[Rfam]
RNA sequence: UCGGUUCCGGUUCACGUUCGAGGUAGAUGCCCGAGCGACCCGGCGACC
Numbered sequence: 001u002c003g004g005u006u007c008c009g010g011u012u013c014a015c016g017u018u019c020g021a022g023g024u025a026g027a028u029g030c031c032c033g034a035g036c037g038a039c040c041c042g043g044c045g046a047c048c
Base pairs, nucleotide, nucleotide: 003048004047005046007043008042009041010040015037016036017035018034019033020032022031023030
Dot-bracket structure: ..(((.((((....((((((.((......))))))))..))))..)))